The record is a 71-nucleotide sequence, which matches "tRNA" in Rfam. The base pairs follow the family's consensus structure, which is taken from published work. It is one of the family's seed sequences. By type it is a transfer RNA.
RNA sequence: GCGAGCGUAGUUCAAUGGUAAAAUAUCUCCUUGCCAAGGAGAAGAUACGGGUUCGAUUCCCGCCGCUCGCC
Numbered sequence: 001g002c003g004a005g006c007g008u009a010g011u012u013c014a015a016u017g018g019u020a021a022a023a024u025a026u027c028u029c030c031u032u033g034c035c036a037a038g039g040a041g042a043a044g045a046u047a048c049g050g051g052u053u054c055g056a057u058u059c060c061c062g063c064c065g066c067u068c069g070c071c
Base pairs, nucleotide, nucleotide: 001070002069003068004067005066006065007064010024011023012022026042027041028040029039030038048062049061050060051059